A member of the RNA family "tRNA" from Moniliophthora perniciosa, 91 nucleotides long. The source organism's lineage runs through Eukaryota, Fungi, Agaricomycotina, Marasmiineae and Moniliophthora perniciosa. Rfam classes the family as a transfer RNA. Transfer RNA (tRNA) molecules are approximately 80 nucleotides in length.
[Rfam]
RNA sequence: ACACCGUUGGUGAAGUGGUUAUCAUGCUUGCCUUCCAUAUACAGAAUGUCUUCGCGAGCAAGCGGCUCGGGUUCGAUUCCCGAACGGUGUA
Numbered sequence: 001a002c003a004c005c006g007u008u009g010g011u012g013a014a015g016u017g018g019u020u021a022u023c024a025u026g027c028u029u030g031c032c033u034u035c036c037a038u039a040u041a042c043a044g045a046a047u048g049u050c051u052u053c054g055c056g057a058g059c060a061a062g063c064g065g066c067u068c069g070g071g072u073u074c075g076a077u078u079c080c081c082g083a084a085c086g087g088u089g090u091a
Stems, first nucleotide, its partner, number of pairs: 001090007010025004027062005067083005